[Rfam]
RNA: TPP riboswitch aptamer (THI element)
Organism: Paenalicyclobacillus ferrooxydans
RNA sequence: CGGAGCCACUAGGGGAGCAUUUGCUGAGACAAGGAGAAAUCCUUGGACCCUUCGAACCUGACCUGGGUAAUACCAGCGUAGGAAAGUGGCGAGCAGCAUUC
Number, nucleotide and partner (000 for none) at each position: 001c000002g000003g000004a000005g000006c089007c088008a087009c086010u085011a051012g050013g049014g048015g000016a000017g024018c023019a000020u000021u000022u000023g018024c017025u000026g000027a000028g000029a000030c000031a044032a043033g042034g041035a040036g000037a000038a000039a000040u035041c034042c033043u032044u031045g000046g000047a000048c014049c013050c012051u011052u000053c000054g000055a000056a000057c082058c081059u080060g079061a000062c000063c076064u075065g074066g073067g000068u000069a000070a000071u000072a000073c066074c065075a064076g063077c000078g000079u060080a059081g058082g057083a000084a000085a010086g009087u008088g007089g006090c000091g000092a000093g000094c000095a000096g000097c000098a000099u000100u000101c000